Record summary: Shown here is an 84-nucleotide RNA from Strigamia maritima, a member of the family "mir-46/mir-47/mir-281 microRNA precursor family". Its family is annotated with RISC complex and miRNA-mediated post-transcriptional gene silencing in the Gene Ontology. The family has 57 seed sequences and 307 matches in Rfam 15.1.
[Rfam]
RNA sequence: GUUUUCUUUCAAUGAAGAGAGCUAUCCGUCGACAGUGUUGCCAUAGAAAACUGUCAUGGAGUUGCUCUCUUUAUGGAUUGGAGA
Numbered sequence: 001g002u003u004u005u006c007u008u009u010c011a012a013u014g015a016a017g018a019g020a021g022c023u024a025u026c027c028g029u030c031g032a033c034a035g036u037g038u039u040g041c042c043a044u045a046g047a048a049a050a051c052u053g054u055c056a057u058g059g060a061g062u063u064g065c066u067c068u069c070u071u072u073a074u075g076g077a078u079u080g081g082a083g084a
Stems, first nucleotide, its partner, number of pairs: 014072005020066003025060004031055003035051002
Dot-bracket structure: .............(((((.(((..((((..(((.((.............)).))).))))...))).)))))............